RNA sequence: AGUAAAUCGUUUGAGUAAGAGUAGUAUGUGCGCCUCUAUUAUCACAGAGAGCCGGGAUUUGCUGGGAACCGGUAUAAGGAGCGAACAGAAUGGACUUACGAGAGCUUUUCUGAACAGGUUCUAAGUAGGAAAAGCCGGGUGAUUCCCGUUACCAAAUCAUCGAGUGGAAGUUUCAACCCUUCAACAUAGAGGUGGCACCGCGGUAUCAAACCGUCCCCUAU
Numbered sequence: 001a002g003u004a005a006a007u008c009g010u011u012u013g014a015g016u017a018a019g020a021g022u023a024g025u026a027u028g029u030g031c032g033c034c035u036c037u038a039u040u041a042u043c044a045c046a047g048a049g050a051g052c053c054g055g056g057a058u059u060u061g062c063u064g065g066g067a068a069c070c071g072g073u074a075u076a077a078g079g080a081g082c083g084a085a086c087a088g089a090a091u092g093g094a095c096u097u098a099c100g101a102g103a104g105c106u107u108u109u110c111u112g113a114a115c116a117g118g119u120u121c122u123a124a125g126u127a128g129g130a131a132a133a134g135c136c137g138g139g140u141g142a143u144u145c146c147c148g149u150u151a152c153c154a155a156a157u158c159a160u161c162g163a164g165u166g167g168a169a170g171u172u173u174c175a176a177c178c179c180u181u182c183a184a185c186a187u188a189g190a191g192g193u194g195g196c197a198c199c200g201c202g203g204u205a206u207c208a209a210a211c212c213g214u215c216c217c218c219u220a221u
Stems, first nucleotide, its partner, number of pairs: 007103002016098004027087003031083002040076003051073005105134007136148003167182004189218001191216002200214005
Description
The record is a 221-nucleotide RNA sequence from Paraliobacillus quinghaiensis, which matches "T-box leader" in Rfam. The literature on the family includes a 1994 paper in J Bacteriol by Grundy et al., "Interaction between the acceptor end of tRNA and the T box stimulates antitermination in the Bacillus subtilis tyrS gene: a new role for the discriminator base". Taxonomically the source falls in Paraliobacillus (Bacteria, Bacillati, Bacillota, Bacillaceae). Its family is annotated with tRNA binding in the Gene Ontology. The family has 48 seed sequences and 19,395 matches in Rfam 15.1. From the family's description: Uncharged tRNA acts as the effector for transcription antitermination of genes in the T-box leader family. T-boxes are found upstream of many aminoacyl-tRNA synthetase genes and some amino acid biosynthetic genes usually in Gram-positive bacteria. Rfam classes the family as a cis-regulatory leader. It scores 127 bits against the family's covariance model.